[Rfam]
Annotation
This 180-nucleotide RNA sequence from Bacillus mesophilum belongs to the Rfam family "glycine-GGAnGA riboswitch aptamer". It scores 110 bits against the family's covariance model. From the family's description: glycine-GGAnGA riboswitch is a variant of glycine riboswitch that have in common a U69A change. This riboswitch is associate with genes that encode either saccharopine dehydrogenase or amino acid transporters and other genes with not predicted function. The family's consensus secondary structure is taken from published work. NCBI's taxonomy places the organism under Bacteria, Bacillati, Bacilli, Caryophanales, Bacillus.
RNA sequence: GCGAAUGACAGCAAGGGGAGAGACUGCUAUUUAAGCAGCGCCGAAGGAGCAAGCAUUCACAUGUGAAUCUCUCAGGCAAAAGAACUCUUGCUUGACGCAUCUCUGGAGAGAGUCCAUAAAAGGGCCACCCAAGAGGACAGCCAUGCAUAUGGUUAAACUUUCAGGUGAAAGGACAGAGGU
Dot-bracket structure: (((......((((((((....(.((((.......)))))(((...((((...((((....))))....))).).))).......))))))))...)))..(((((....(.((((......)))))(((...(.((.....................))..).))).......)))))..
Numbered sequence: 001g002c003g004a005a006u007g008a009c010a011g012c013a014a015g016g017g018g019a020g021a022g023a024c025u026g027c028u029a030u031u032u033a034a035g036c037a038g039c040g041c042c043g044a045a046g047g048a049g050c051a052a053g054c055a056u057u058c059a060c061a062u063g064u065g066a067a068u069c070u071c072u073c074a075g076g077c078a079a080a081a082g083a084a085c086u087c088u089u090g091c092u093u094g095a096c097g098c099a100u101c102u103c104u105g106g107a108g109a110g111a112g113u114c115c116a117u118a119a120a121a122g123g124g125c126c127a128c129c130c131a132a133g134a135g136g137a138c139a140g141c142c143a144u145g146c147a148u149a150u151g152g153u154u155a156a157a158c159u160u161u162c163a164g165g166u167g168a169a170a171g172g173a174c175a176g177a178g179g180u
Stems, first nucleotide, its partner, number of pairs: 001098003010092008022039001024038004040077003046073001047071003053064004101178005110126001112125004127166003133162001135159002